[Rfam]
RNA sequence: GUUCCCUGUGAUGUUUAUGAACCAUGCUAAUCCUGAUUUUUCAUGAUUAUUUACUUCUAAAUAUUCUGAGGGAACU
Numbered sequence: 001g002u003u004c005c006c007u008g009u010g011a012u013g014u015u016u017a018u019g020a021a022c023c024a025u026g027c028u029a030a031u032c033c034u035g036a037u038u039u040u041u042c043a044u045g046a047u048u049a050u051u052u053a054c055u056u057c058u059a060a061a062u063a064u065u066c067u068g069a070g071g072g073a074a075c076u
Stems, first nucleotide, its partner, number of pairs: 001075005
Small nucleolar RNA snoR53Y: a 76-nucleotide RNA from Malus domestica. The family's consensus secondary structure was predicted with WAR. A reference for the family is Brown et al. (2001), "Multiple snoRNA gene clusters from Arabidopsis", RNA. Gene Ontology terms of the family: nucleolus and RNA processing. It is annotated as a C/D-box small nucleolar RNA. The source organism's lineage runs through Eukaryota, Embryophyta, Mesangiospermae, Amygdaloideae and Malus.